RNA sequence: GGCCCGGUGGCAGAGUGGUUAUGCAGCGGUUUGCAAAACCGUGUACAUCGGUUCAAUUCCGGUCCGGGCCU
Numbered sequence: 001g002g003c004c005c006g007g008u009g010g011c012a013g014a015g016u017g018g019u020u021a022u023g024c025a026g027c028g029g030u031u032u033g034c035a036a037a038a039c040c041g042u043g044u045a046c047a048u049c050g051g052u053u054c055a056a057u058u059c060c061g062g063u064c065c066g067g068g069c070c071u
Stems, first nucleotide, its partner, number of pairs: 001070007010024003026042005047063005
Source information
The record is a 71-nucleotide RNA sequence from Puniceispirillum marinum, which matches "tRNA" in Rfam. The source organism's lineage runs through Bacteria, Alphaproteobacteria, Puniceispirillales (SeqCode), Puniceispirillaceae (SeqCode) and Puniceispirillum (SeqCode). It scores 61 bits against the family's covariance model.